[Rfam]
RNA sequence: UUGAUACCACUUUGUAAGUCGCUCUGGAUAAGGGCAUCUGCUAAAUACCGUAAA
Numbered sequence: 001u002u003g004a005u006a007c008c009a010c011u012u013u014g015u016a017a018g019u020c021g022c023u024c025u026g027g028a029u030a031a032g033g034g035c036a037u038c039u040g041c042u043a044a045a046u047a048c049c050g051u052a053a054a
Stems, first nucleotide, its partner, number of pairs: 013043001014041003021035005
The record is a 54-nucleotide RNA sequence from Silurus meridionalis, which matches "UnaL2 LINE 3' element" in Rfam. The base pairs follow the family's consensus structure, which is taken from published work. Rfam describes the family as follows. The eel long interspersed element (LINE) UnaL2 and its partner short interspersed element (SINE) share a conserved 3' tail containing a stem-loop that is critical for their retrotransposition. Rfam classes the family as a cis-regulatory element.